[Rfam]
Background:
A member of the RNA family "6S / SsrS RNA" from Magnetovirga frankeli, 185 nucleotides long. It is annotated as a non-coding RNA gene. The organism belongs to Magnetovirga, within Bacteria.
RNA sequence: GCGCUCCUGCCGCUCUCGUGUUUCGAUGGGGUAUUUUCUUGAGCCUUACAGUGUACCCUGGGGGCACAAUACCGAUGCCGUUGUGCAUGUCCGCUUCAUAGCGGAAAGCCUGAAGCCUCGGUGCCGCUCCCACUUGAACCCAACGGUUCAGGAACGAAGUCGAUAACGGCCCUGGUGGGAGCGCC
Dot-bracket structure: .(((((((((((..(.(((...............((((.((((((..............(((.((...(..((((.(.(.....((...(((((......)))))..)).....)).)))))...)).))).............))))))))))...........))))..).))))))))))..